[Rfam]
RNA sequence: CUUGUAAAUACUAAAUCACACACGUGUCGACACAUUCUCCGGGGUGCCUCUAGAAGGUCGGAGAUAUGGGAUACGUGGAGGUCUAAC
Number, nucleotide and partner (000 for none) at each position: 001c000002u000003u000004g000005u000006a000007a000008a000009u000010a000011c000012u000013a000014a000015a000016u000017c000018a000019c000020a000021c077022a076023c075024g074025u073026g072027u071028c070029g000030a000031c000032a000033c068034a067035u066036u000037c000038u062039c061040c060041g059042g000043g000044g000045u000046g058047c057048c056049u055050c000051u000052a000053g000054a000055a049056g048057g047058u046059c041060g040061g039062a038063g000064a000065u000066a035067u034068g033069g000070g028071a027072u026073a025074c024075g023076u022077g021078g000079a000080g000081g000082u000083c000084u000085a000086a000087c000